[Rfam]
RNA: Bacteroidete tryptophan peptide leader RNA
Organism: Urechidicola croceus
RNA sequence: GUACCAUACAAAAAGAAACAAUGACAAAUACUCAAAAUAAUACAUGGUGGUGGAACUCUCUUAAUCAAUAAGUGAGAAGUUACUAUUAUAUAUUAUUUUAAUUAUAUAAAAUCAUAAAAGGCUUAUC
Number, nucleotide and partner (000 for none) at each position: 001g000002u000003a000004c000005c000006a000007u000008a000009c000010a000011a000012a000013a000014a000015g000016a000017a000018a000019c000020a000021a000022u000023g000024a000025c000026a000027a000028a000029u000030a000031c000032u000033c000034a000035a000036a097037a096038u095039a000040a093041u092042a091043c000044a089045u088046g087047g086048u000049g084050g083051u082052g081053g000054a000055a000056c079057u078058c076059u075060c074061u071062u070063a069064a000065u000066c000067a000068a000069u063070a062071a061072g000073u000074g060075a059076g058077a000078a057079g056080u000081u052082a051083c050084u049085a000086u047087u046088a045089u044090a000091u042092a041093u040094u000095a038096u037097u036098u000099u000100a000101a000102u000103u000104a000105u000106a000107u000108a000109a000110a000111a000112u000113c000114a000115u000116a000117a000118a000119a000120g000121g000122c000123u000124u000125a000126u000127c000